[Rfam]
RNA: Small nucleolar RNA SNORD89
Organism: Mola mola
RNA sequence: GCUGGGAGAUGAUGUGAACAAAAGGCCGAAUUGUAGCGCCCCCGUCAGGCAGUGUGUUCUCAGAGCGGCGGCGCCCUGACAAAGACCGACCGAAGCGUUCUUCUGAUCCCACCGCAGU
Numbered sequence: 001g002c003u004g005g006g007a008g009a010u011g012a013u014g015u016g017a018a019c020a021a022a023a024g025g026c027c028g029a030a031u032u033g034u035a036g037c038g039c040c041c042c043c044g045u046c047a048g049g050c051a052g053u054g055u056g057u058u059c060u061c062a063g064a065g066c067g068g069c070g071g072c073g074c075c076c077u078g079a080c081a082a083a084g085a086c087c088g089a090c091c092g093a094a095g096c097g098u099u100c101u102u103c104u105g106a107u108c109c110c111a112c113c114g115c116a117g118u
Stems, first nucleotide, its partner, number of pairs: 001118004006113001014108001025034002035104002038101001042097001043095001045093002048091002052074002055071001058068002076088001078086001